[Rfam]
RNA sequence: UGGCCUUAGAAACCAAGUGUGGGUGUGGCCUGGACUUGAAAAUGGCGACCCAUCCUUAGUUUCUGAGGACA
Numbered sequence: 001u002g003g004c005c006u007u008a009g010a011a012a013c014c015a016a017g018u019g020u021g022g023g024u025g026u027g028g029c030c031u032g033g034a035c036u037u038g039a040a041a042a043u044g045g046c047g048a049c050c051c052a053u054c055c056u057u058a059g060u061u062u063c064u065g066a067g068g069a070c071a
Stems, first nucleotide, its partner, number of pairs: 002070001004068004009063005016056002021051004028046003
RNA: mir-551 microRNA precursor family
Organism: Neogobius melanostomus